RNA sequence: AGUUGGUCCGAGUGCAGUGGUGUUUACAACUAAUUGUUCACAACCAGUUACAGAGUCCUUCAUUCCUUCUCCAUUCCCACUGUUUCACUUGACUAGUAAAAA
Numbered sequence: 001a002g003u004u005g006g007u008c009c010g011a012g013u014g015c016a017g018u019g020g021u022g023u024u025u026a027c028a029a030c031u032a033a034u035u036g037u038u039c040a041c042a043a044c045c046a047g048u049u050a051c052a053g054a055g056u057c058c059u060u061c062a063u064u065c066c067u068u069c070u071c072c073a074u075u076c077c078c079a080c081u082g083u084u085u086c087a088c089u090u091g092a093c094u095a096g097u098a099a100a101a102a
Base pairs, nucleotide, nucleotide: 002097003096004095005094006093007092008091010090011089014086016081017080018079019078020077022076028064029063032060033059